Source information:
The family of this 63-nucleotide RNA from Streptomyces sp. NBRC 110611 is "Streptomyces RNA 2736". On this family, see Vockenhuber et al., RNA Biol 2011: "Deep sequencing-based identification of small non-coding RNAs in Streptomyces coelicolor". By type it is a small RNA. Rfam's curators write: Identified by deep sequencing of transcriptome at the end of exponential growth phase. Appears smaller on northern blot than sequencing transcript. This indicates processing step. Streptomyces specific.
RNA sequence: CGCCCGGACGGAUCCCGUGGGGGGAAUCCAACCGGGGAAAUGGGAAGCGCCCCGCACUCUGGA
Numbered sequence: 001c002g003c004c005c006g007g008a009c010g011g012a013u014c015c016c017g018u019g020g021g022g023g024g025a026a027u028c029c030a031a032c033c034g035g036g037g038a039a040a041u042g043g044g045a046a047g048c049g050c051c052c053c054g055c056a057c058u059c060u061g062g063a
Base pairs, nucleotide, nucleotide: 001061002060003037004036005035007033010029011028012027013026014024015023016022042052043051044050